[Rfam]
Annotation
This 126-nucleotide RNA from Castor canadensis belongs to the Rfam family "Small nucleolar RNA SNORA51". About the family: ACA51 is a member of the H/ACA class of snoRNA that guide the sites of modification of uridines to pseudouridines. NCBI's taxonomy places the organism under Eukaryota, Bilateria, Gnathostomata, Boreoeutheria, Castor. Rfam classes the family as an H/ACA-box small nucleolar RNA.
RNA sequence: GGCCUCUUGGUACUUACUCCAGGUUCUUACAGCGACUGCACUGAACAAGGAGGCAGAGAAAUCUCUCCCUGUGUACACCUCAGCCUGGUCCCUGUCCCUGGUCUGUCUUGUGAAUGGGAAGCAUGG
Numbered sequence: 001g002g003c004c005u006c007u008u009g010g011u012a013c014u015u016a017c018u019c020c021a022g023g024u025u026c027u028u029a030c031a032g033c034g035a036c037u038g039c040a041c042u043g044a045a046c047a048a049g050g051a052g053g054c055a056g057a058g059a060a061a062u063c064u065c066u067c068c069c070u071g072u073g074u075a076c077a078c079c080u081c082a083g084c085c086u087g088g089u090c091c092c093u094g095u096c097c098c099u100g101g102u103c104u105g106u107c108u109u110g111u112g113a114a115u116g117g118g119a120a121g122c123a124u125g126g
Base pairs, nucleotide, nucleotide: 002054003053004052005051006050007049008048020038021037022036023030024029067118069117070116071115072114081105082104083103084101085100087098088097